Shown here is a 174-nucleotide sequence from Rhodococcus maanshanensis, a member of the family "M-box riboswitch aptamer (ykoK leader)". About the family: M-box riboswitch, also know as ykoK leader is described as a metaloregulatory RNA that sense divalent metals and function as a genetic control element of genes related to divalent metal transport in bacteria. It was first reported upstream of the B.subtilis ykoK gene and genes with related functions in other bacteria. The literature on the family includes a 2004 paper in Proc Natl Acad Sci U S A by Barrick et al., "New RNA motifs suggest an expanded scope for riboswitches in bacterial genetic control".
RNA sequence: AAAGCACCUCGCUAGGCGAGGCUCCUGCAUGAACACAGGCCACUGAUCUGACGACGUCGACAGACGCCCAAGGUUAGGACAGGUAUUCCCGGAUUAAGGGUCUAUCCAAAGUGGCUUCUCGAACGAAUCGGGACACGUCAUGCAGUGCCGAAGCUCUGACGAGAGGGGUGCCCG
Numbered sequence: 001a002a003a004g005c006a007c008c009u010c011g012c013u014a015g016g017c018g019a020g021g022c023u024c025c026u027g028c029a030u031g032a033a034c035a036c037a038g039g040c041c042a043c044u045g046a047u048c049u050g051a052c053g054a055c056g057u058c059g060a061c062a063g064a065c066g067c068c069c070a071a072g073g074u075u076a077g078g079a080c081a082g083g084u085a086u087u088c089c090c091g092g093a094u095u096a097a098g099g100g101u102c103u104a105u106c107c108a109a110a111g112u113g114g115c116u117u118c119u120c121g122a123a124c125g126a127a128u129c130g131g132g133a134c135a136c137g138u139c140a141u142g143c144a145g146u147g148c149c150g151a152a153g154c155u156c157u158g159a160c161g162a163g164a165g166g167g168g169u170g171c172c173c174g
Base pairs, nucleotide, nucleotide: 005170006169007168008167009166010165011160013097015155016154017153020149021148022147025145026144027143028142029141030140031139032138039115040114041113042112043111045075046074047073048072049071055066056065057064058063082106083105084104085103088100089099090098117133118132119131120130121129